[Rfam]
RNA sequence: GGGGCUGGUCAAUAGACCUUGGUCCUAUCGCGUAGCGGGGAAGUGCCCC
Dot-bracket structure: ((((((((((....))))..)))))).......................
Shown here is a 49-nucleotide sequence from Treponema peruense, a member of the family "DUF3800-XI RNA".
The base pairs follow the family's consensus structure, which is taken from published work.